[Rfam]
RNA sequence: UUAUGCAGAAGAGGAGCACUGCCUAGGUAGGUAUGAUGUGGAGCCACAACUCCAAAACACCAUACUCAGGGGGAGCAGUGCCGAGGUAGACCAAGGGUUGUGGAAUUGGUCUGUCGGUUGACUUGGGUUGAAUCUCAUCAACUGUCAUCAGUGCUAUCUGAUGAAGAGCUUCUGAGGUC
Number, nucleotide and partner (000 for none) at each position: 001u000002u000003a000004u000005g000006c174007a173008g172009a171010a170011g169012a000013g000014g000015a000016g081017c080018a079019c078020u077021g076022c075023c000024u073025a000026g000027g000028u000029a000030g066031g065032u064033a063034u062035g061036a000037u059038g000039u000040g000041g000042a000043g000044c000045c000046a000047c000048a000049a000050c000051u000052c000053c000054a000055a000056a000057a000058c000059a037060c000061c035062a034063u033064a032065c031066u030067c000068a000069g000070g000071g000072g000073g024074a000075g022076c021077a020078g019079u018080g017081c016082c000083g000084a000085g115086g114087u113088a112089g111090a110091c109092c108093a107094a106095g000096g000097g000098u000099u000100g000101u000102g000103g000104a000105a000106u094107u093108g092109g091110u090111c089112u088113g087114u086115c085116g143117g142118u141119u140120g139121a138122c000123u000124u137125g136126g135127g134128u000129u000130g000131a000132a000133u000134c127135u126136c125137a124138u121139c120140a119141a118142c117143u116144g000145u164146c163147a162148u161149c160150a159151g158152u000153g000154c000155u000156a000157u000158c151159u150160g149161a148162u147163g146164a145165a000166g000167a000168g000169c011170u010171u009172c008173u007174g006175a000176g000177g000178u000179c000